The family of this 78-nucleotide RNA from Neogobius melanostomus is "mir-10 microRNA precursor family". The literature on the family includes a 2001 paper in Science by Lee and Ambros, "An extensive class of small RNAs in Caenorhabditis elegans". The source organism's lineage runs through Eukaryota, Teleostomi, Euteleostomi, Acanthomorphata and Neogobius.
RNA sequence: CUAUAUCUACCCUGUAGAUCCGGAUUUGUGUGGCAGUCCUAUUAACAAUCACAAAUUCGCUUCUAGGGAGUAUAUAGU
Numbered sequence: 001c002u003a004u005a006u007c008u009a010c011c012c013u014g015u016a017g018a019u020c021c022g023g024a025u026u027u028g029u030g031u032g033g034c035a036g037u038c039c040u041a042u043u044a045a046c047a048a049u050c051a052c053a054a055a056u057u058c059g060c061u062u063c064u065a066g067g068g069a070g071u072a073u074a075u076a077g078u
Stems, first nucleotide, its partner, number of pairs: 002076005010068003016064003021059010